The family of this 129-nucleotide sequence from Trachymyrmex cornetzi is "R2 RNA element". Pairs were carried over by alignment from the consensus structure, which is taken from published work. This family represents the 3' UTR region of the R2 retrotransposable element. This family is known to interact with the R2-encoded reverse transcriptase in a reaction known as target primed reverse transcription (TPRT). For this family Rfam cites "Secondary structure models of the 3' untranslated regions of diverse R2 RNAs" (Ruschak et al., RNA, 2004). NCBI's taxonomy places the organism under Eukaryota, Arthropoda, Endopterygota, Attini, Trachymyrmex. By type it is a cis-regulatory element. It scores 50 bits against the family's covariance model. Its family is annotated with regulation of reverse transcription in the Gene Ontology.

RNA sequence: CGUUGAAGGUCUUGGUGUGAUGCGGGGAGGUUUUAGUCGGUAGGUGCCGGACCGAACUUCGGUUCGGGGCGGCGAAUCCGACACUGGAUGGUUCCCCGGGCGUCUUUUGAAGAUUUCCUCCUUGUCAAC
Numbered sequence: 001c002g003u004u005g006a007a008g009g010u011c012u013u014g015g016u017g018u019g020a021u022g023c024g025g026g027g028a029g030g031u032u033u034u035a036g037u038c039g040g041u042a043g044g045u046g047c048c049g050g051a052c053c054g055a056a057c058u059u060c061g062g063u064u065c066g067g068g069g070c071g072g073c074g075a076a077u078c079c080g081a082c083a084c085u086g087g088a089u090g091g092u093u094c095c096c097c098g099g100g101c102g103u104c105u106u107u108u109g110a111a112g113a114u115u116u117c118c119u120c121c122u123u124g125u126c127a128a129c
Stems, first nucleotide, its partner, number of pairs: 002129005023124008036082005045074005053066005084102001